Rfam assigns this 101-nucleotide RNA from Lacrimispora saccharolytica to the family "Purine riboswitch aptamer". Pairs were carried over by alignment from the consensus structure, which is taken from published work. A search with the family's covariance model found it, with a score of 51 bits.

RNA sequence: AUAGUUUUAUAUACAGUGUCUUGUAUAUGCCCGGGAUAAUGGCCUGGGCGUCUCUAUCCGACUUCCGAAAUGUCAGGGCUACAAAGGCAGUUUAUUUUUGC
Dot-bracket structure: ..................(.(((((...(((((((.......)))))))........(((((.(.....).))).))..))))).)...............